[Rfam]
RNA sequence: UUGCAUUCUUAAACCUUCUUGGUAGCUUUACUCUAAACGCUUCCAAGAUAUGAGCGAAUGUAACUUAUCUAGGUUGCUCAGUCAAAAUAGUUUCUGAAACUAAAAUUUACAUGUAAGUUAUUAA
Numbered sequence: 001u002u003g004c005a006u007u008c009u010u011a012a013a014c015c016u017u018c019u020u021g022g023u024a025g026c027u028u029u030a031c032u033c034u035a036a037a038c039g040c041u042u043c044c045a046a047g048a049u050a051u052g053a054g055c056g057a058a059u060g061u062a063a064c065u066u067a068u069c070u071a072g073g074u075u076g077c078u079c080a081g082u083c084a085a086a087a088u089a090g091u092u093u094c095u096g097a098a099a100c101u102a103a104a105a106u107u108u109a110c111a112u113g114u115a116a117g118u119u120a121u122u123a124a
Base pairs, nucleotide, nucleotide: 003061004060005059006058008054009053010052011051017048018047019046020045021044022043024041025040026039065124066123067122072118074116075115076114077113088102089101090100091099092098093097
The family of this 124-nucleotide RNA sequence from Physeter macrocephalus is "Small nucleolar RNA SNORA14". A search with the family's covariance model found it, with a score of 63 bits.